[Rfam]
RNA sequence: GAGAAAUGAGGAUAUAUUUUUUGUCUUACUUCUGUGAAGACUUCAGAUCCAACUCUGAUCUCACACUGAUG
Numbered sequence: 001g002a003g004a005a006a007u008g009a010g011g012a013u014a015u016a017u018u019u020u021u022u023g024u025c026u027u028a029c030u031u032c033u034g035u036g037a038a039g040a041c042u043u044c045a046g047a048u049c050c051a052a053c054u055c056u057g058a059u060c061u062c063a064c065a066c067u068g069a070u071g
Base pairs, nucleotide, nucleotide: 001062002061003060004059

Small nucleolar RNA SNORD19: a 71-nucleotide RNA sequence from Cardinalis cardinalis. The base pairs follow the family's consensus structure. By type it is a C/D-box small nucleolar RNA. NCBI's taxonomy places the organism under Eukaryota, Craniata, Teleostomi, Passeriformes, Cardinalis. It scores 43 bits against the family's covariance model.